[Rfam]
RNA sequence: UGUAUCAGAUGAUGAAACCUCGAAACAAUCUUAGGACACCUUUUUGACACAGUGUUGGUAGCUCUAUGAGUGAGAAGGCAAUUCUUUUCUAAUGAUAAU
Numbered sequence: 001u002g003u004a005u006c007a008g009a010u011g012a013u014g015a016a017a018c019c020u021c022g023a024a025a026c027a028a029u030c031u032u033a034g035g036a037c038a039c040c041u042u043u044u045u046g047a048c049a050c051a052g053u054g055u056u057g058g059u060a061g062c063u064c065u066a067u068g069a070g071u072g073a074g075a076a077g078g079c080a081a082u083u084c085u086u087u088u089c090u091a092a093u094g095a096u097a098a099u
Base pairs, nucleotide, nucleotide: 003097004096005095006094007093047053048052